[Rfam]
RNA: THF (Tetrahydrofolate) riboswitch aptamer
Organism: Acetoanaerobium sticklandii
RNA sequence: CGCAGAGUAAAUUUGCAGCGUUAAGUGUUAAAGGCUGGGAAGUCGCCUUUAAACGAAGGUAGUACCGCGACUGUAAAUUGCAUCCGCUGCA
Numbered sequence: 001c002g003c004a005g006a007g008u009a010a011a012u013u014u015g016c017a018g019c020g021u022u023a024a025g026u027g028u029u030a031a032a033g034g035c036u037g038g039g040a041a042g043u044c045g046c047c048u049u050u051a052a053a054c055g056a057a058g059g060u061a062g063u064a065c066c067g068c069g070a071c072u073g074u075a076a077a078u079u080g081c082a083u084c085c086g087c088u089g090c091a
Stems, first nucleotide, its partner, number of pairs: 002090004010079009019069003025054002028052007038085003042081001058066003